RNA sequence: GCACAAAUACACCCGCGGCUGGGACGGGGGAACCACAUUCGGGCGCGGCUGAUGUCACGUCCUUGGGGUGAAGUCUUUGGAUGGGAGACCAUCCGGAGACCGAGCAACUCCGCUCGAACCCGACAGCUCACCUCGGCGGCUCAGGAGACUACUUGU
Numbered sequence: 001g002c003a004c005a006a007a008u009a010c011a012c013c014c015g016c017g018g019c020u021g022g023g024a025c026g027g028g029g030g031a032a033c034c035a036c037a038u039u040c041g042g043g044c045g046c047g048g049c050u051g052a053u054g055u056c057a058c059g060u061c062c063u064u065g066g067g068g069u070g071a072a073g074u075c076u077u078u079g080g081a082u083g084g085g086a087g088a089c090c091a092u093c094c095g096g097a098g099a100c101c102g103a104g105c106a107a108c109u110c111c112g113c114u115c116g117a118a119c120c121c122g123a124c125a126g127c128u129c130a131c132c133u134c135g136g137c138g139g140c141u142c143a144g145g146a147g148a149c150u151a152c153u154u155g156u
Stems, first nucleotide, its partner, number of pairs: 002023001004021001025135005034065002066121003074099011102115004